RNA sequence: UCAAAAUUAGCCACAUGUCAUUUUCUAAUUGGUUCUUAGUUUGUUAACAUUUUAUAAGAACCAAUUAGUAAAUAACAAGUGACUAAUUUUAA
Numbered sequence: 001u002c003a004a005a006a007u008u009a010g011c012c013a014c015a016u017g018u019c020a021u022u023u024u025c026u027a028a029u030u031g032g033u034u035c036u037u038a039g040u041u042u043g044u045u046a047a048c049a050u051u052u053u054a055u056a057a058g059a060a061c062c063a064a065u066u067a068g069u070a071a072a073u074a075a076c077a078a079g080u081g082a083c084u085a086a087u088u089u090u091a092a
Stems, first nucleotide, its partner, number of pairs: 003090008012081003016077003020073004025068014

MIR6288 microRNA precursor family: a 92-nucleotide RNA sequence from Prunus dulcis. The match comes from Rfam's covariance-model search (77 bits). Gene Ontology terms of the family: RISC complex and miRNA-mediated post-transcriptional gene silencing.